[Rfam]
RNA sequence: ACGAGAUGCCUCUCGGAUCGGUCGAACAGCGGUCUAGACAAUCACUAUUCUUCCUGAUCAGAGGGGCAUUUCUGCGUCACCGCGCCCGCUCAACCCCACGGCUCAUCGGUGGAUCAAG
Dot-bracket structure: ..(((((((((((..((.(((..(((..(.(((.......))).)..)))..)).).))..)))))))))))...........................((.(((....))).))...
RNA: Actinobacteria sRNA Ms_IGR-7